[Rfam]
RNA sequence: AAAGUUGCAUAUGCAACUGCUAUGGAUUGGUUCAUUGCUGUUUGUUAUGCUUUC
Number, nucleotide and partner (000 for none) at each position: 001a000002a053003a052004g000005u000006u000007g050008c049009a000010u047011a046012u000013g045014c044015a042016a041017c040018u000019g038020c037021u000022a035023u034024g033025g032026a031027u000028u000029g000030g000031u026032u025033c024034a023035u022036u000037g020038c019039u000040g017041u016042u015043u000044g014045u013046u011047a010048u000049g008050c007051u000052u003053u002054c000
Rfam assigns this 54-nucleotide sequence from Chiloscyllium punctatum to the family "Editing element of GABA-3 exon 9".
The literature on the family includes a 2007 paper in RNA by Ohlson et al., "Editing modifies the GABA(A) receptor subunit alpha3".
It is annotated as a cis-regulatory element.
Lineage of the source: Eukaryota > Opisthokonta > Deuterostomia > Elasmobranchii > Chiloscyllium.